Rfam assigns this 53-nucleotide RNA sequence to the family "Mu-gpT-DE RNA". Pairs were carried over by alignment from the consensus structure, which is taken from published work. The family's RNA type in Rfam is small RNA.
RNA sequence: CCCUGACAGUUACAUAAUGUGACUGACACUUGCCACGACAGGAGAAUCUCAUG
Numbered sequence: 001c002c003c004u005g006a007c008a009g010u011u012a013c014a015u016a017a018u019g020u021g022a023c024u025g026a027c028a029c030u031u032g033c034c035a036c037g038a039c040a041g042g043a044g045a046a047u048c049u050c051a052u053g
Base pairs, nucleotide, nucleotide: 002042003041004040005039007025008024009023010022011021